Shown here is a 126-nucleotide RNA from Loigolactobacillus coryniformis, a member of the family "FMN riboswitch aptamer (RFN element)". The match comes from Rfam's covariance-model search (109 bits). The family's consensus secondary structure is taken from published work. Gene Ontology term of the family: FMN binding. Lineage of the source: Bacteria > Lactobacillales > Lactobacillaceae > Loigolactobacillus coryniformis > Loigolactobacillus coryniformis subsp. coryniformis.

RNA sequence: GUUCGUCUUCAGGGCAGGGUGAAAUUCCCGACCGGCGGUAAUAGUCCGCGACCCACCAAGUUAUUGGUGGCCGAAUUGGUGUGAUACCAAUACCGAUAGUUAAAGUCUAGAUAGAAGAAGAUAAGC
Numbered sequence: 001g002u003u004c005g006u007c008u009u010c011a012g013g014g015c016a017g018g019g020u021g022a023a024a025u026u027c028c029c030g031a032c033c034g035g036c037g038g039u040a041a042u043a044g045u046c047c048g049c050g051a052c053c054c055a056c057c058a059a060g061u062u063a064u065u066g067g068u069g070g071c072c073g074a075a076u077u078g079g080u081g082u083g084a085u086a087c088c089a090a091u092a093c094c095g096a097u098a099g100u101u102a103a104a105g106u107c108u109a110g111a112u113a114g115a116a117g118a119a120g121a122u123a124a125g126c
Stems, first nucleotide, its partner, number of pairs: 003124001005122006017029003031106002033095002035049004044093002053070002075091005097109003